[Rfam]
Shown here is a 93-nucleotide RNA sequence from Rousettus aegyptiacus, a member of the family "mir-433 microRNA precursor family". For this family Rfam cites "Characterization of bovine miRNAs by sequencing and bioinformatics analysis" (Jin et al., BMC Mol Biol, 2009).
RNA sequence: CCGGGGAGAAGUGCGGUGAGCCUGUCAUCAUUCAGGGAGGCCAGGUCCUCCUCGUCCAGAAGGAUCAUGAUGGGCUCCUCGGUGUUCUCCAGG
Numbered sequence: 001c002c003g004g005g006g007a008g009a010a011g012u013g014c015g016g017u018g019a020g021c022c023u024g025u026c027a028u029c030a031u032u033c034a035g036g037g038a039g040g041c042c043a044g045g046u047c048c049u050c051c052u053c054g055u056c057c058a059g060a061a062g063g064a065u066c067a068u069g070a071u072g073g074g075c076u077c078c079u080c081g082g083u084g085u086u087c088u089c090c091a092g093g
Stems, first nucleotide, its partner, number of pairs: 001093002005090006014081003018077011030065003033054001037050004
Rfam 15.1 lists 130 matches to the family in 130 species.